[Rfam]
The family of this 59-nucleotide RNA from Nocardia aurantiaca is "msiK RNA".
The family's RNA type in Rfam is cis-regulatory element.
RNA sequence: AGCAAGACCCCUCUACAACGGAUCGUCCGGCACGUUCCUGCCGGUGAAGGGAUGUAUGA
Numbered sequence: 001a002g003c004a005a006g007a008c009c010c011c012u013c014u015a016c017a018a019c020g021g022a023u024c025g026u027c028c029g030g031c032a033c034g035u036u037c038c039u040g041c042c043g044g045u046g047a048a049g050g051g052a053u054g055u056a057u058g059a
Stems, first nucleotide, its partner, number of pairs: 009051004014046002027044006